The record is a 127-nucleotide sequence from Amazona guildingii, which matches "Small nucleolar RNA SNORA1" in Rfam. The base pairs follow the family's consensus structure, which was predicted with PFOLD. From the family's description: ACA1 is a member of the H/ACA class of snoRNA that guide the sites of modification of uridines to pseudouridines. The family's RNA type in Rfam is H/ACA-box small nucleolar RNA.
[Rfam]
RNA sequence: AGCCACGUUACUCAACAAAUAGACACAACUCACUGUGUGUCUGAAGAACGUGGCUAGAAAAGGAACAGGUUGUGCUUUCCUCACGGUAUAGUUAGUUGCAGUGGUGACAAUCAGACCUUUAACAGGU
Number, nucleotide and partner (000 for none) at each position: 001a000002g054003c053004c052005a000006c050007g049008u048009u000010a000011c000012u000013c000014a000015a000016c000017a000018a000019a000020u000021a042022g041023a040024c039025a038026c037027a036028a000029c000030u000031c000032a000033c000034u000035g000036u027037g026038u025039g024040u023041c022042u021043g000044a000045a000046g000047a000048a008049c007050g006051u000052g004053g003054c002055u000056a000057g000058a000059a000060a000061a000062g000063g000064a000065a120066c000067a118068g117069g116070u000071u000072g000073u000074g000075c000076u000077u000078u000079c106080c000081u104082c103083a102084c101085g000086g000087u000088a000089u000090a000091g000092u000093u000094a000095g000096u000097u000098g000099c000100a000101g084102u083103g082104g081105u000106g079107a000108c000109a000110a000111u000112c000113a000114g000115a000116c069117c068118u067119u000120u065121a000122a000123c000124a000125g000126g000127u000